[Rfam]
RNA sequence: AUUGUUUGAGGUGGAAAAUUUCGUCUCCGUCCACACGCCGAUGGUUUGACAGGGAGCAAUCCCGAGAGAUGCAGGAGAAAGGGACGCCUGCCAAACAAC
Numbered sequence: 001a002u003u004g005u006u007u008g009a010g011g012u013g014g015a016a017a018a019u020u021u022c023g024u025c026u027c028c029g030u031c032c033a034c035a036c037g038c039c040g041a042u043g044g045u046u047u048g049a050c051a052g053g054g055a056g057c058a059a060u061c062c063c064g065a066g067a068g069a070u071g072c073a074g075g076a077g078a079a080a081g082g083g084a085c086g087c088c089u090g091c092c093a094a095a096c097a098a099c
Base pairs, nucleotide, nucleotide: 002098003097004096005095006094007093008092011034012033013032014031015030024086026084027083028082036066037045038044039043071091072090073089074088075087
Description:
The record is a 99-nucleotide sequence, which matches "skipping-rope RNA" in Rfam. The sequence is in the family's curated seed alignment.